[Rfam]
RNA: MIR828 microRNA precursor family
Organism: Trifolium subterraneum
RNA sequence: GUAAUAUUUCUUGCUCAAAUGAGUAUUCCAAUCACAGUUCCAGUUUACAUCAAAGUGUGCUGUUGGCUGAGAUGCUCAUUUGAGCAAGCAGUGUUAG
Numbered sequence: 001g002u003a004a005u006a007u008u009u010c011u012u013g014c015u016c017a018a019a020u021g022a023g024u025a026u027u028c029c030a031a032u033c034a035c036a037g038u039u040c041c042a043g044u045u046u047a048c049a050u051c052a053a054a055g056u057g058u059g060c061u062g063u064u065g066g067c068u069g070a071g072a073u074g075c076u077c078a079u080u081u082g083a084g085c086a087a088g089c090a091g092u093g094u095u096a097g
Base pairs, nucleotide, nucleotide: 004094005093006092007091008090010088011087012086013085014084015083016082017081018080019079020078021077022076023075024074025073026072027071029069030068